[Rfam]
RNA sequence: CGGUUAAAAAGCGCGUAGUUUGUGGUGUAGCGGGUCGUUGUGGGGCGAGAUCAAUGCGUUCUGUGUGACUUAUGCUCAUUGCUAGGGAGCGCGAGACGCCGGUGGUAUUCGGUAGCGAGGGGUGAAAACUGCAGACCUACCGAGGAGCGACAGAGGCGUAAGCGGCCGGCGAGUGCGGAUCCGACGAUCAAGCGCGUGGGCAGGAGUAUCGAAGACGAUUAGAGACCGUCGUAGUUCCUGCAGUAAACGAUGCCGACAUGGUUGAAUAGAAUUGACCAAAGGGAAACUGAGUGUACGGGCUCCGGGGAGAGUACGGGCGCAAGCCAGAAACUUGAAGAAAU
Numbered sequence: 001c002g003g004u005u006a007a008a009a010a011g012c013g014c015g016u017a018g019u020u021u022g023u024g025g026u027g028u029a030g031c032g033g034g035u036c037g038u039u040g041u042g043g044g045g046c047g048a049g050a051u052c053a054a055u056g057c058g059u060u061c062u063g064u065g066u067g068a069c070u071u072a073u074g075c076u077c078a079u080u081g082c083u084a085g086g087g088a089g090c091g092c093g094a095g096a097c098g099c100c101g102g103u104g105g106u107a108u109u110c111g112g113u114a115g116c117g118a119g120g121g122g123u124g125a126a127a128a129c130u131g132c133a134g135a136c137c138u139a140c141c142g143a144g145g146a147g148c149g150a151c152a153g154a155g156g157c158g159u160a161a162g163c164g165g166c167c168g169g170c171g172a173g174u175g176c177g178g179a180u181c182c183g184a185c186g187a188u189c190a191a192g193c194g195c196g197u198g199g200g201c202a203g204g205a206g207u208a209u210c211g212a213a214g215a216c217g218a219u220u221a222g223a224g225a226c227c228g229u230c231g232u233a234g235u236u237c238c239u240g241c242a243g244u245a246a247a248c249g250a251u252g253c254c255g256a257c258a259u260g261g262u263u264g265a266a267u268a269g270a271a272u273u274g275a276c277c278a279a280a281g282g283g284a285a286a287c288u289g290a291g292u293g294u295a296c297g298g299g300c301u302c303c304g305g306g307g308a309g310a311g312u313a314c315g316g317g318c319g320c321a322a323g324c325c326a327g328a329a330a331c332u333u334g335a336a337g338a339a340a341u
Stems, first nucleotide, its partner, number of pairs: 001304003011195004018188003086182003090177004097171007104148001108144008119130002156163002200241006210234001214230004252300003256292002259278007281288002306333002316325003
RNA: Microsporidia small subunit ribosomal RNA, nucleotides 426 to 766
Organism: Parathelohania anophelis